This 79-nucleotide RNA from Cnephaeus nilssonii belongs to the Rfam family "mir-574 microRNA precursor family".
RNA sequence: AAGCCUGAAGAGAGAGGCAGGGUCUGAUCCGCAGACUCCAUGACAGCUGUUGAUCAGCUGUUGCCUCUCUUUCUCUCGG
Numbered sequence: 001a002a003g004c005c006u007g008a009a010g011a012g013a014g015a016g017g018c019a020g021g022g023u024c025u026g027a028u029c030c031g032c033a034g035a036c037u038c039c040a041u042g043a044c045a046g047c048u049g050u051u052g053a054u055c056a057g058c059u060g061u062u063g064c065c066u067c068u069c070u071u072u073c074u075c076u077c078g079g
Stems, first nucleotide, its partner, number of pairs: 009072012022059001024057006032049003
For this family Rfam cites "Patterns of known and novel small RNAs in human cervical cancer" (Lui et al., Cancer Res, 2007). The organism belongs to Cnephaeus, within Eukaryota. Pairs were carried over by alignment from the consensus structure, which was predicted with RNAalifold. A search with the family's covariance model found it, with a score of 83 bits. Rfam 15.1 lists 4,084 matches to the family in 7 species.